Shown here is a 219-nucleotide RNA sequence from Streptomyces benahoarensis, a member of the family "Actinobacteria sRNA Ms_IGR-5". It scores 70 bits against the family's covariance model. The organism belongs to Streptomyces, within Bacteria. Pairs were carried over by alignment from the consensus structure. On this family, see Li et al., RNA 2013: "Identification of small RNAs in Mycobacterium smegmatis using heterologous Hfq". It is annotated as a small RNA.

RNA sequence: ACACGAGAAGGGAGGUGGUUCGGCAGAUGAUUUCGUACCGGACGCGUGAGGUGACUGCGGCCUAGGCCGCCGCUUCACACCCAGUGCAGCGCCGGCCCGCGCAUACUGCAGAUGCGCCGUCGGCCAAUCCCAGCAGUCACCCGACCCGUGGGCCCCCGGUUCGUCCGACCGGUCGCCGCGCCACCCGGCGCGACGGAAGCGGCCCACGGGUCGUCUGCG
Numbered sequence: 001a002c003a004c005g006a007g008a009a010g011g012g013a014g015g016u017g018g019u020u021c022g023g024c025a026g027a028u029g030a031u032u033u034c035g036u037a038c039c040g041g042a043c044g045c046g047u048g049a050g051g052u053g054a055c056u057g058c059g060g061c062c063u064a065g066g067c068c069g070c071c072g073c074u075u076c077a078c079a080c081c082c083a084g085u086g087c088a089g090c091g092c093c094g095g096c097c098c099g100c101g102c103a104u105a106c107u108g109c110a111g112a113u114g115c116g117c118c119g120u121c122g123g124c125c126a127a128u129c130c131c132a133g134c135a136g137u138c139a140c141c142c143g144a145c146c147c148g149u150g151g152g153c154c155c156c157c158g159g160u161u162c163g164u165c166c167g168a169c170c171g172g173u174c175g176c177c178g179c180g181c182c183a184c185c186c187g188g189c190g191c192g193a194c195g196g197a198a199g200c201g202g203c204c205c206a207c208g209g210g211u212c213g214u215c216u217g218c219g
Base pairs, nucleotide, nucleotide: 015058016057017056018055019054060124061123062122065121066120067119069117070116142213143212144211145210146209147208148207149206150205151204152203153202154201156172157171158170159169160168